This 131-nucleotide sequence from Chinchilla lanigera belongs to the Rfam family "Small nucleolar RNA SNORA1". The base pairs follow the family's consensus structure, which was predicted with PFOLD. About the family: ACA1 is a member of the H/ACA class of snoRNA that guide the sites of modification of uridines to pseudouridines.
[Rfam]
RNA sequence: AGCCUCAUUCUAGAUUACAAUGGGCACUGUUGAUUGGUGUCCCAAAUUGGUUAAUGUGGCUAAUAUGAGACACAGGUCAUGCUUCCAUUACAGUAAUGUUUAUAGUGGUAACAAUGAGACCAGUAACAUUU
Number, nucleotide and partner (000 for none) at each position: 001a000002g060003c059004c058005u000006c056007a055008u054009u000010c000011u000012a000013g000014a000015u000016u000017a000018c000019a000020a000021u000022g042023g041024g040025c039026a038027c037028u000029g000030u000031u000032g000033a000034u000035u000036g000037g027038u026039g025040u024041c023042c022043c000044a000045a000046a000047u000048u000049g000050g000051u000052u000053a000054a008055u007056g006057u000058g004059g003060c002061u000062a000063a000064u000065a000066u000067g000068a000069g000070a000071c000072a124073c123074a000075g121076g120077u000078c000079a000080u000081g000082c000083u000084u000085c000086c000087a109088u108089u107090a106091c105092a000093g000094u000095a000096a000097u000098g000099u000100u000101u000102a000103u000104a000105g091106u090107g089108g088109u087110a000111a000112c000113a000114a000115u000116g000117a000118g000119a000120c076121c075122a000123g073124u072125a000126a000127c000128a000129u000130u000131u000
Notes
It is annotated as an H/ACA-box small nucleolar RNA. It scores 116 bits against the family's covariance model.